Overview:
A member of the RNA family "TPP riboswitch aptamer (THI element)" from Marihabitans asiaticum, 104 nucleotides long. Pairs were carried over by alignment from the consensus structure, which is taken from published work. Taxonomically the source falls in Marihabitans (Bacteria, Bacillati, Actinomycetes, Micrococcales). A search with the family's covariance model found it, with a score of 62 bits.
RNA sequence: GGAGUCCGACAGGGGAGCGCAGAGCGCUGAGAGUGCGGGAGAGCCCGCAGACCCUCCAACCUGAUCCGGUUCGUACCGGCGUAGGGAGUCAUCCAUGACGCGUA
Dot-bracket structure: .......(((((((..((((...))))......(((((......)))))..))))....((((..((((......))))..))))..)))..............